A member of the RNA family "c-di-GMP-I riboswitch aptamer" from Litchfieldia salsa, 86 nucleotides long. Rfam's curators write: GEMM was predicted in a large-scale screen for bacterial structured RNA regulatory elements.
[Rfam]
RNA sequence: UUAUGAUAAUGGCAAAUCUAUUGAAAGAUAGAGACGCAAAGCUACGGGUCUAACACUAUUACAGUCAUGACAGCCGGGUUACCAAG
Number, nucleotide and partner (000 for none) at each position: 001u000002u000003a000004u000005g000006a000007u000008a000009a000010u000011g000012g037013c036014a000015a000016a000017u032018c031019u030020a029021u028022u027023g000024a000025a000026a000027g022028a021029u020030a019031g018032a017033g000034a000035c000036g013037c012038a000039a000040a080041g079042c078043u077044a000045c076046g075047g074048g071049u070050c069051u000052a000053a000054c000055a065056c064057u063058a000059u000060u000061a000062c000063a057064g056065u055066c000067a000068u000069g050070a049071c048072a000073g000074c047075c046076g045077g043078g042079u041080u040081a000082c000083c000084a000085a000086g000

Lineage of the source: Bacteria > Bacillati > Bacilli > Bacillaceae > Litchfieldia.